Shown here is a 145-nucleotide RNA from Gossypium stocksii, a member of the family "MIR7502 microRNA precursor family". Its family is annotated with RISC complex and miRNA-mediated post-transcriptional gene silencing in the Gene Ontology. Rfam 15.1 lists 74,505 matches to the family in 24 species. The family's consensus secondary structure was predicted with RNAalifold.
Nucleotides: 145
Stems, first nucleotide, its partner, number of pairs: 003143010014132003018128004023123003028118006
Number, partner (000 for none) and nucleotide at each position: 001000u002000a003143u004142u005141a006140a007139a008138a009137a010136u011135u012134u013000c014132a015131u016130c017000u018128a019127u020126u021125u022000u023123u024122g025121u026000u027000g028118u029117u030116a031115a032114a033113a034000a035000u036000c037000g038000g039000u040000c041000a042000u043000u044000a045000u046000a047000c048000g049000a050000c051000a052000g053000c054000a055000u056000g057000g058000g059000g060000u061000g062000c063000a064000c065000a066000u067000g068000a069000c070000a071000c072000g073000u074000c075000a076000c077000g078000u079000g080000u081000c082000u083000u084000u085000g086000u087000c088000u089000a090000g091000u092000u093000a094000u095000u096000c097000c098000a099000a100000c101000a102000a103000c104000c105000u106000c107000g108000c109000c110000a111000g112000u113033u114032u115031u116030u117029a118028a119000c120000c121025g122024u123023a124000u125021a126020a127019a128018u129000u130016g131015a132014u133000a134012a135011a136010a137009u138008u139007u140006u141005u142004a143003a144000c145000a